RNA sequence: CUUCGAAAAGAAUCACUGCCUCAUAUAAUCUUGGAGAUAAGGUCCAUAAGUUUCUACCUGGCAACCAUGAAUUGCUAGACUAUGAGGGGAAAAGUGUGUAAC
Numbered sequence: 001c002u003u004c005g006a007a008a009a010g011a012a013u014c015a016c017u018g019c020c021u022c023a024u025a026u027a028a029u030c031u032u033g034g035a036g037a038u039a040a041g042g043u044c045c046a047u048a049a050g051u052u053u054c055u056a057c058c059u060g061g062c063a064a065c066c067a068u069g070a071a072u073u074g075c076u077a078g079a080c081u082a083u084g085a086g087g088g089g090a091a092a093a094g095u096g097u098g099u100a101a102c
Stems, first nucleotide, its partner, number of pairs: 019087007029049001032046004058078007

Purine riboswitch aptamer: a 102-nucleotide sequence from Bacillus anthracis. The sequence is in the family's curated seed alignment. Its family is annotated with purine nucleobase biosynthetic process in the Gene Ontology. The source organism's lineage runs through Bacteria, Caryophanales, Bacillaceae, Bacillus and Bacillus anthracis.